[Rfam]
RNA sequence: AUUUCUCUAGCGAGCCUGAGACAGUGAAAGUCAGGUGAAGAACAUGGACAGAUUGGCGCUUUCUAGUCAAUAUCAUAUAAAAAUGAAGUAAUAAAUUAGGGUGGAACCGCGUUCUUAACG
Numbered sequence: 001a002u003u004u005c006u007c008u009a010g011c012g013a014g015c016c017u018g019a020g021a022c023a024g025u026g027a028a029a030g031u032c033a034g035g036u037g038a039a040g041a042a043c044a045u046g047g048a049c050a051g052a053u054u055g056g057c058g059c060u061u062u063c064u065a066g067u068c069a070a071u072a073u074c075a076u077a078u079a080a081a082a083a084u085g086a087a088g089u090a091a092u093a094a095a096u097u098a099g100g101g102u103g104g105a106a107c108c109g110c111g112u113u114c115u116u117a118a119c120g
Base pairs, nucleotide, nucleotide: 002106003105004104005103006101007100014068016066019064020063021062023060024059025058026057029054030053031052032051036047071088073086074085075084
Streptococcus sRNA SpR19: a 120-nucleotide sequence from Streptococcus minor. The source organism's lineage runs through Bacteria, Bacillota, Lactobacillales, Streptococcaceae and Streptococcus.